Rfam assigns this 115-nucleotide RNA from Streptomyces griseoaurantiacus to the family "Glycine riboswitch aptamer".

RNA sequence: GCACAUCUGGAAAGCGGGCCGUCCGUGCACACGGCGGUCCCACCCAAGGUGCAAGCCGUGACCCCCUCGCCGGGUCACGGUGAAGCUCUCAGGUUCCGAUGACAGAUGGGGAGGA
Numbered sequence: 001g002c003a004c005a006u007c008u009g010g011a012a013a014g015c016g017g018g019c020c021g022u023c024c025g026u027g028c029a030c031a032c033g034g035c036g037g038u039c040c041c042a043c044c045c046a047a048g049g050u051g052c053a054a055g056c057c058g059u060g061a062c063c064c065c066c067u068c069g070c071c072g073g074g075u076c077a078c079g080g081u082g083a084a085g086c087u088c089u090c091a092g093g094u095u096c097c098g099a100u101g102a103c104a105g106a107u108g109g110g111g112a113g114g115a
Stems, first nucleotide, its partner, number of pairs: 002110001004108006016040008042094003046089001049088001051086001055081010

It scores 42 bits against the family's covariance model.
Taxonomically the source falls in Streptomyces griseoaurantiacus (Bacteria, Actinomycetota, Kitasatosporales, Streptomyces).